[Rfam]
RNA sequence: ACUGCCCCUAGAGGCAUUGCAGAUAUGGCGGCUGUGUCACAUGUGUGCCAGUAGGUGGCAGAGAGGAGAAAGGUUAUGUCUAUGCUCAAUGUUCUGAUCUAUGGACAUCUGAAUAAUUAGUAGUCUAACAAU
Dot-bracket structure: .(((((((((..(((...(((..(.((((......)))).)..))))))..)))).)))))......(..(((((((.....((.(((.(((((........)))))..))).))....)))))))..)...
A member of the RNA family "Small nucleolar RNA SNORA17", 132 nucleotides long. A reference for the family is Ofengand and Bakin (1997), "Mapping to nucleotide resolution of pseudouridine residues in large subunit ribosomal RNAs from representative eukaryotes, prokaryotes, archaebacteria, mitochondria and chloroplasts", J Mol Biol. Its Rfam clan is "SNORA17 clan". Rfam 15.1 lists 5,784 matches to the family in 673 species. It is annotated as an H/ACA-box small nucleolar RNA. The base pairs follow the family's consensus structure, which was predicted with RNAalifold.